Shown here is an 82-nucleotide RNA sequence from Microbulbifer sp. THAF38, a member of the family "Group II catalytic intron D1-D4-1". Gene Ontology term of the family: Group II intron splicing. On this family, see Bonen and Vogel, Trends Genet 2001: "The ins and outs of group II introns". The organism belongs to Microbulbifer, within Bacteria. It scores 57 bits against the family's covariance model.
[Rfam]
RNA sequence: CUGAAAACUGAGAAAUCAGUUUUGAUCGGCCUAUAGAAGUCAGCAGAAGGCAUAGUAGGUAGGUUUCGUGCUACUGAAGGCC
Numbered sequence: 001c002u003g004a005a006a007a008c009u010g011a012g013a014a015a016u017c018a019g020u021u022u023u024g025a026u027c028g029g030c031c032u033a034u035a036g037a038a039g040u041c042a043g044c045a046g047a048a049g050g051c052a053u054a055g056u057a058g059g060u061a062g063g064u065u066u067c068g069u070g071c072u073a074c075u076g077a078a079g080g081c082c
Stems, first nucleotide, its partner, number of pairs: 004023008040047002049082003058075005